[Rfam]
RNA sequence: GGUGUGUGUACUUACUACAUAACGAAUCAAUCUUUCGCCUUUUACUAAAGAUUGCCGUGUAGAAAGUACGAUAAAUGCAUUAUACCACAAAUUUUUGUCGCGCCUUCGUUGGCGCG
Number, nucleotide and partner (000 for none) at each position: 001g000002g000003u000004g080005u079006g078007u000008g000009u068010a067011c066012u065013u064014a000015c062016u061017a060018c059019a058020u000021a000022a000023c000024g000025a000026a000027u000028c054029a053030a052031u051032c050033u049034u048035u047036c000037g000038c000039c000040u000041u000042u000043u000044a000045c000046u000047a035048a034049a033050g032051a031052u030053u029054g028055c000056c000057g000058u019059g018060u017061a016062g015063a000064a013065a012066g011067u010068a009069c000070g000071a000072u000073a000074a000075a000076u000077g000078c006079a005080u004081u000082a000083u000084a000085c000086c000087a000088c000089a000090a000091a000092u000093u000094u000095u000096u000097g000098u000099c116100g115101c114102g113103c112104c111105u000106u000107c000108g000109u000110u000111g104112g103113c102114g101115c100116g099
U5 spliceosomal RNA: a 116-nucleotide RNA from Plasmodium malariae. It is annotated as a spliceosomal small nuclear RNA. Rfam links the family to the GO terms spliceosomal tri-snRNP complex assembly and U5 snRNP. About the family: U5 RNA is a component of both types of known spliceosome.